[Rfam]
RNA sequence: GGAUGUGAGGGCGAUCUGGCUGCGACAUCUGUCACCCCAUUGAUCGCCAGGGUUGAUUCGGCUGAUCUGGCUGGCUAGGUGGGUGUCCCCCUCCUCCCUCACCAAUCCAUGUGCGUCCCUCCCGAAGCUGCGCGCUCGGUCGAAGAGGACGACCUUCCCCCCCGAGGAGAGGACCGGUCUUCGGUCAAGGGUAUACGAGUAGCUGCGCUCCCCUGCUAGAACCUCCAAACAAGCUCUCAAGGUCCAAAUUAGAGGAAAUGAAGCCAGGCCUCCAAGUAUGCAAGAAAACAUGGUUGUCUGAUACAAGAUUUAUAGCCAGGAAUU
Numbered sequence: 001g002g003a004u005g006u007g008a009g010g011g012c013g014a015u016c017u018g019g020c021u022g023c024g025a026c027a028u029c030u031g032u033c034a035c036c037c038c039a040u041u042g043a044u045c046g047c048c049a050g051g052g053u054u055g056a057u058u059c060g061g062c063u064g065a066u067c068u069g070g071c072u073g074g075c076u077a078g079g080u081g082g083g084u085g086u087c088c089c090c091c092u093c094c095u096c097c098c099u100c101a102c103c104a105a106u107c108c109a110u111g112u113g114c115g116u117c118c119c120u121c122c123c124g125a126a127g128c129u130g131c132g133c134g135c136u137c138g139g140u141c142g143a144a145g146a147g148g149a150c151g152a153c154c155u156u157c158c159c160c161c162c163c164g165a166g167g168a169g170a171g172g173a174c175c176g177g178u179c180u181u182c183g184g185u186c187a188a189g190g191g192u193a194u195a196c197g198a199g200u201a202g203c204u205g206c207g208c209u210c211c212c213c214u215g216c217u218a219g220a221a222c223c224u225c226c227a228a229a230c231a232a233g234c235u236c237u238c239a240a241g242g243u244c245c246a247a248a249u250u251a252g253a254g255g256a257a258a259u260g261a262a263g264c265c266a267g268g269c270c271u272c273c274a275a276g277u278a279u280g281c282a283a284g285a286a287a288a289c290a291u292g293g294u295u296g297u298c299u300g301a302u303a304c305a306a307g308a309u310u311u312a313u314a315g316c317c318a319g320g321a322a323u324u
Stems, first nucleotide, its partner, number of pairs: 001108003005102007013093002018090002024087010035074002037070003042067004046062003116172002118167004122139004127135002142160001147158003202269003208263002211260001214257001216255001223254003229249001290324001294319003298315001299312002301309002

Rfam assigns this 324-nucleotide RNA from Myotis davidii to the family "7SK RNA". The organism belongs to Myotis, within Eukaryota. The literature on the family includes a 2002 paper in Curr Biol by Blencowe, "Transcription: surprising role for an elusive small nuclear RNA". About the family: 7SK was discovered as an abundant small nuclear RNA in the mid-70s but a possible function has only recently been suggested. Two independent studies have found that 7SK RNA binds the CDK9/cyclin T complex (known as elongation factor P-TEFb). The family's RNA type in Rfam is non-coding RNA gene. The base pairs follow the family's consensus structure, which is taken from published work.